[Rfam]
RNA sequence: UUCCUUUCUUGAUCUGUAAAUGGGGUCCGACGUCUCCUGAAGGCUACAUAGGCGCUCCUACCCAACUCCUAUUCUGGUAUGUGCUAGCCAUACAGACCGUGUACAUGUAGUCCCGCUUAUCUGAGUUUGGGUGAACGGUCCAAUCCCAACCCCUUGGGAGGAUGGGGUUACAUGGCCAAGGC
Numbered sequence: 001u002u003c004c005u006u007u008c009u010u011g012a013u014c015u016g017u018a019a020a021u022g023g024g025g026u027c028c029g030a031c032g033u034c035u036c037c038u039g040a041a042g043g044c045u046a047c048a049u050a051g052g053c054g055c056u057c058c059u060a061c062c063c064a065a066c067u068c069c070u071a072u073u074c075u076g077g078u079a080u081g082u083g084c085u086a087g088c089c090a091u092a093c094a095g096a097c098c099g100u101g102u103a104c105a106u107g108u109a110g111u112c113c114c115g116c117u118u119a120u121c122u123g124a125g126u127u128u129g130g131g132u133g134a135a136c137g138g139u140c141c142a143a144u145c146c147c148a149a150c151c152c153c154u155u156g157g158g159a160g161g162a163u164g165g166g167g168u169u170a171c172a173u174g175g176c177c178a179a180g181g182c
Stems, first nucleotide, its partner, number of pairs: 011098001013096005023063004027052002076182001078180001079091003083100002104174006111167004119163004127149005151158002
Shown here is a 182-nucleotide sequence from Anopheles sinensis, a member of the family "drz-agam-2-2 ribozyme". For this family Rfam cites "Widespread occurrence of self-cleaving ribozymes" (Webb et al., Science, 2009). The organism belongs to Myzorhynchus, within Eukaryota. Rfam links the family to the GO term catalytic activity. The family's consensus secondary structure is taken from published work. The family has 5 seed sequences and 486 matches in Rfam 15.1. It scores 103 bits against the family's covariance model.